[Rfam]
RNase MRP: a 268-nucleotide RNA from Olea europaea. Taxonomically the source falls in Olea europaea (Eukaryota, Tracheophyta, Spermatophyta, eudicotyledons). Its family is annotated with rRNA processing, ribonuclease MRP activity and ribonuclease MRP complex in the Gene Ontology.
RNA sequence: CACAUCCACGAGAUGAAGUUAAUGGGUCAUGGUACCAAGUUCUUGCUUGGCUCCGACCCAGGAAAGUCCCCGAGCCACUAACUGCCGAGAUGCAGACUCAAGAAUGAGUAACCUUGAGCACGGUGGCUCUUGCCCUUGUGCAAGGGCUGAGACACGUGUGGAGCCCUAAAGCCACCCUGCUGAAGUGUCUUGGCUGACUAUCCACAGUUAUUCACUUGGUCCAAUCCCAGGAUGGACUAACCGAACGGGGCUUACACUCUCGUGAUGU
Numbered sequence: 001c002a003c004a005u006c007c008a009c010g011a012g013a014u015g016a017a018g019u020u021a022a023u024g025g026g027u028c029a030u031g032g033u034a035c036c037a038a039g040u041u042c043u044u045g046c047u048u049g050g051c052u053c054c055g056a057c058c059c060a061g062g063a064a065a066g067u068c069c070c071c072g073a074g075c076c077a078c079u080a081a082c083u084g085c086c087g088a089g090a091u092g093c094a095g096a097c098u099c100a101a102g103a104a105u106g107a108g109u110a111a112c113c114u115u116g117a118g119c120a121c122g123g124u125g126g127c128u129c130u131u132g133c134c135c136u137u138g139u140g141c142a143a144g145g146g147c148u149g150a151g152a153c154a155c156g157u158g159u160g161g162a163g164c165c166c167u168a169a170a171g172c173c174a175c176c177c178u179g180c181u182g183a184a185g186u187g188u189c190u191u192g193g194c195u196g197a198c199u200a201u202c203c204a205c206a207g208u209u210a211u212u213c214a215c216u217u218g219g220u221c222c223a224a225u226c227c228c229a230g231g232a233u234g235g236a237c238u239a240a241c242c243g244a245a246c247g248g249g250g251c252u253u254a255c256a257c258u259c260u261c262g263u264g265a266u267g268u
Base pairs, nucleotide, nucleotide: 002268003267004266005265006264009262010261011260012259013258016217017216018215019214021212024059025058026057027056035050036049037048038047039046040045064253065252066251068250069249070248071247083094084093085092096109097108098107099106100105112185119179120178122176123175124174132172133171144166145165146164147163154159219237220236221235222234223233